The family of this 153-nucleotide sequence from Clostridium cylindrosporum is "glmS glucosamine-6-phosphate activated ribozyme aptamer". This entry contains a glucosamine-6-phosphate activated ribozyme that is found in the mRNA for GlmS. GlmS is an enzyme that uses fructose-6-phosphate and glutamine to generate glucosamine-6-phosphate. The ribozyme catalyses self cleavage of the glmS mRNA that is thought to regulate GlmS activity. It scores 84 bits against the family's covariance model. Gene Ontology terms of the family: regulation of gene expression and catalytic activity. The family's RNA type in Rfam is riboswitch.
RNA sequence: AAAUAUAAUUAAGCGCCAGGACUUUUUUAUGAUUUAAAGUUGACGAGGUCAGAGUUUAUCGAAAUAUCGGCGGAUACUCUGCGUUUAACCAGCGUAAAAAACCUAACAAAGACUUAAAGUAAUUUAAGGAACAAAAAGGUGUGGUUAUGGGUU
Numbered sequence: 001a002a003a004u005a006u007a008a009u010u011a012a013g014c015g016c017c018a019g020g021a022c023u024u025u026u027u028u029a030u031g032a033u034u035u036a037a038a039g040u041u042g043a044c045g046a047g048g049u050c051a052g053a054g055u056u057u058a059u060c061g062a063a064a065u066a067u068c069g070g071c072g073g074a075u076a077c078u079c080u081g082c083g084u085u086u087a088a089c090c091a092g093c094g095u096a097a098a099a100a101a102c103c104u105a106a107c108a109a110a111g112a113c114u115u116a117a118a119g120u121a122a123u124u125u126a127a128g129g130a131a132c133a134a135a136a137a138g139g140u141g142u143g144g145u146u147a148u149g150g151g152u153u
Base pairs, nucleotide, nucleotide: 020041021040022039023038024037025036050081051080052079053078054077059070060069061068062067082094083093084092085091099142101140102139103138104137113128114127115126116125117124118123